[Rfam]
RNA sequence: CUAUUUGUGAAUAAUAUAUAUAUAUAUAUAUAUCAUUCAUUCGUUUACCCUUGUGGCAAACAACCCAAAUUAAACAAAACGGACUUGGGUGUGUUUCCUGACCGCACGCGAGUGGGGGGUGGCAGCUGAGAGGCACUUUUGUGUCGGCUUCUGGGCCACCUCUUGUGGGUGUGUGGGGACCUGUCAGAGUUCAGGCGACC
Numbered sequence: 001c002u003a004u005u006u007g008u009g010a011a012u013a014a015u016a017u018a019u020a021u022a023u024a025u026a027u028a029u030a031u032a033u034c035a036u037u038c039a040u041u042c043g044u045u046u047a048c049c050c051u052u053g054u055g056g057c058a059a060a061c062a063a064c065c066c067a068a069a070u071u072a073a074a075c076a077a078a079a080c081g082g083a084c085u086u087g088g089g090u091g092u093g094u095u096u097c098c099u100g101a102c103c104g105c106a107c108g109c110g111a112g113u114g115g116g117g118g119g120u121g122g123c124a125g126c127u128g129a130g131a132g133g134c135a136c137u138u139u140u141g142u143g144u145c146g147g148c149u150u151c152u153g154g155g156c157c158a159c160c161u162c163u164u165g166u167g168g169g170u171g172u173g174u175g176g177g178g179a180c181c182u183g184u185c186a187g188a189g190u191u192c193a194g195g196c197g198a199c200c
Base pairs, nucleotide, nucleotide: 009038010037011036012035014033015032016031017030018029019028020027041198042197043196044195045194046193065082066081096179097178098177102176103175104174105173106172107171108170109169112166113165114164115163116162117161118160119159120158121157122156126154127153129152130151131150133144134143135142136141
Source information: A member of the RNA family "Gammacoronavirus 5'UTR" from Gammacoronavirus delphinapteri, 200 nucleotides long. By type it is a cis-regulatory element.